A member of the RNA family "mir-216 microRNA precursor family" from Synaphobranchus kaupii, 78 nucleotides long. It scores 64 bits against the family's covariance model. Rfam links the family to the GO terms RISC complex and miRNA-mediated post-transcriptional gene silencing. The organism belongs to Synaphobranchus, within Eukaryota.
[Rfam]
RNA sequence: AUUUCGCAUAAUCUCAGCUGGCAACUGUGAGCUGUGCAGAUGCCCCCCCUCACAGUGGCUCCUGGGAUUAUGUUAAAU
Numbered sequence: 001a002u003u004u005c006g007c008a009u010a011a012u013c014u015c016a017g018c019u020g021g022c023a024a025c026u027g028u029g030a031g032c033u034g035u036g037c038a039g040a041u042g043c044c045c046c047c048c049c050u051c052a053c054a055g056u057g058g059c060u061c062c063u064g065g066g067a068u069u070a071u072g073u074u075a076a077a078u
Stems, first nucleotide, its partner, number of pairs: 003076002006073002009070009020060003023056001026054006
Dot-bracket structure: ..((.((.(((((((((..((((..((((((.................)))))).).))).))))))))).)).))..